[Rfam]
RNA sequence: CCGUGCUAGAUGGGGAGGUAGCGGUGCCCUAUAACUUGCAACCCGCUCUAGCAAGAUUGAAUUCCUCUACUGAGGCUGUAUGUAUUGUUUGGUCUGCCUUUUGCACGUAGUGUUGAAGGUUGGGUCCUGCGCAAUGAAUACCCAUGAACCAUGUCAGGUCCGGAAGGAAGCAGCAUUAAGUGGUCUCAUUCAUGUGCCGUGGGAUAGCCUGACCCGAGCUAACGACAAGAGUAACGCUUAUGUGCGUCAGUCGAAGAGAGGUGCACGG
Numbered sequence: 001c002c003g004u005g006c007u008a009g010a011u012g013g014g015g016a017g018g019u020a021g022c023g024g025u026g027c028c029c030u031a032u033a034a035c036u037u038g039c040a041a042c043c044c045g046c047u048c049u050a051g052c053a054a055g056a057u058u059g060a061a062u063u064c065c066u067c068u069a070c071u072g073a074g075g076c077u078g079u080a081u082g083u084a085u086u087g088u089u090u091g092g093u094c095u096g097c098c099u100u101u102u103g104c105a106c107g108u109a110g111u112g113u114u115g116a117a118g119g120u121u122g123g124g125u126c127c128u129g130c131g132c133a134a135u136g137a138a139u140a141c142c143c144a145u146g147a148a149c150c151a152u153g154u155c156a157g158g159u160c161c162g163g164a165a166g167g168a169a170g171c172a173g174c175a176u177u178a179a180g181u182g183g184u185c186u187c188a189u190u191c192a193u194g195u196g197c198c199g200u201g202g203g204a205u206a207g208c209c210u211g212a213c214c215c216g217a218g219c220u221a222a223c224g225a226c227a228a229g230a231g232u233a234a235c236g237c238u239u240a241u242g243u244g245c246g247u248c249a250g251u252c253g254a255a256g257a258g259a260g261g262u263g264c265a266c267g268g
Stems, first nucleotide, its partner, number of pairs: 001268006009058003012030004017025001019023001035055005064261005070256002074252005081246005087241002091237001095233002099230005107223002109220003118214008126203006132194002135192005142183004151176004159168003
RNA: Bacterial large signal recognition particle RNA
Organism: Lysinibacillus alkalisoli